[Rfam]
Small nucleolar RNA SNORA84: a 140-nucleotide RNA from Vombatus ursinus.
RNA sequence: GCCCCGUGGUUCCUGGACGCUAUGAUGUCAGUGUAGCUCGCCAGGCUGUGAAGAAGGGCCCAGAGCAAGCAGGCGCAGUGAUGUAUGCGUGGGGGCUGCGUCCCCCUGGCAGCCCCCACAGCCCGGUCACUGGAACACGU
Numbered sequence: 001g002c003c004c005c006g007u008g009g010u011u012c013c014u015g016g017a018c019g020c021u022a023u024g025a026u027g028u029c030a031g032u033g034u035a036g037c038u039c040g041c042c043a044g045g046c047u048g049u050g051a052a053g054a055a056g057g058g059c060c061c062a063g064a065g066c067a068a069g070c071a072g073g074c075g076c077a078g079u080g081a082u083g084u085a086u087g088c089g090u091g092g093g094g095g096c097u098g099c100g101u102c103c104c105c106c107u108g109g110c111a112g113c114c115c116c117c118a119c120a121g122c123c124c125g126g127u128c129a130c131u132g133g134a135a136c137a138c139g140u
Stems, first nucleotide, its partner, number of pairs: 001059004007050002012045005019037005076132001078130005087122002089119004094114006
The source organism's lineage runs through Eukaryota, Bilateria, Vertebrata, Diprotodontia and Vombatus. Gene Ontology terms of the family: RNA processing and nucleolus. Pairs were carried over by alignment from the consensus structure, which was predicted with WAR. The family's RNA type in Rfam is H/ACA-box small nucleolar RNA.